[Rfam]
RNA sequence: GCCCGGGCCACGGCCCCCAACGGGCCGCGACCCAUCUGCAAGGAUGGGAGAC
Numbered sequence: 001g002c003c004c005g006g007g008c009c010a011c012g013g014c015c016c017c018c019a020a021c022g023g024g025c026c027g028c029g030a031c032c033c034a035u036c037u038g039c040a041a042g043g044a045u046g047g048g049a050g051a052c
Base pairs, nucleotide, nucleotide: 011027012026013025014024015023016022032047033046034045035044036043037042
Dot-bracket structure: ..........((((((.....))))))....((((((....)))))).....
serC leader: a 52-nucleotide RNA sequence from Defluviicoccus vanus.
A search with the family's covariance model found it, with a score of 39 bits.
The base pairs follow the family's consensus structure.
Gene Ontology term of the family: regulation of gene expression.
From the family's description: This family is a putative regulatory RNA structure that is found upstream of the serC-serA operon in some alpha-proteobacteria. The final stem of the structure overlaps the ribosome binding site of the serC reading frame.
The literature on the family includes a 2005 paper in Genome Biol by Corbino et al., "Evidence for a second class of S-adenosylmethionine riboswitches and other regulatory RNA motifs in alpha-proteobacteria".